[Rfam]
RNA sequence: CGGAAGAUUCAUGGUUAAGGAACUAGGCAAAUUGACCCCGUAACUUCGGGAUAAGGGGUCCUCAUAGGGAUAUGAGGCGCAGAGAAUAGGUCCAGGCAACUGUUUAACAAAAACACAGGGCUGUGCUAAGUCGAAAGAUGCUGUAUACAGUCUGACACCUGCCCGGUGCCGGAAGGUCAAGAGGAGAGCUCAGACUUUAGUCGAAGGUUUGAAUUGAAGCCCCGGUAAACGGCGGCCGUAACUAUAACGGUCCUAAGGUAGCGAAAUUCCUUGUCGGGUAAGUUCCGACCUGCACGAAUGGUGUAAUGAUCCGGACACUGUCUCAACCAUGAUUCCG
Numbered sequence: 001c002g003g004a005a006g007a008u009u010c011a012u013g014g015u016u017a018a019g020g021a022a023c024u025a026g027g028c029a030a031a032u033u034g035a036c037c038c039c040g041u042a043a044c045u046u047c048g049g050g051a052u053a054a055g056g057g058g059u060c061c062u063c064a065u066a067g068g069g070a071u072a073u074g075a076g077g078c079g080c081a082g083a084g085a086a087u088a089g090g091u092c093c094a095g096g097c098a099a100c101u102g103u104u105u106a107a108c109a110a111a112a113a114c115a116c117a118g119g120g121c122u123g124u125g126c127u128a129a130g131u132c133g134a135a136a137g138a139u140g141c142u143g144u145a146u147a148c149a150g151u152c153u154g155a156c157a158c159c160u161g162c163c164c165g166g167u168g169c170c171g172g173a174a175g176g177u178c179a180a181g182a183g184g185a186g187a188g189c190u191c192a193g194a195c196u197u198u199a200g201u202c203g204a205a206g207g208u209u210u211g212a213a214u215u216g217a218a219g220c221c222c223c224g225g226u227a228a229a230c231g232g233c234g235g236c237c238g239u240a241a242c243u244a245u246a247a248c249g250g251u252c253c254u255a256a257g258g259u260a261g262c263g264a265a266a267u268u269c270c271u272u273g274u275c276g277g278g279u280a281a282g283u284u285c286c287g288a289c290c291u292g293c294a295c296g297a298a299u300g301g302u303g304u305a306a307u308g309a310u311c312c313g314g315a316c317a318c319u320g321u322c323u324c325a326a327c328c329a330u331g332a333u334u335c336c337g
Stems, first nucleotide, its partner, number of pairs: 001337004009332008018323003035059005044049001060077007078082001090316004095311002097308002101115003118153008126143001130139003156303004161233003166230002168226005175221003181215002186210005193202002234252006253257001263290001273289006
RNA: Bacterial large subunit ribosomal RNA, nucleotides 1683 to 2019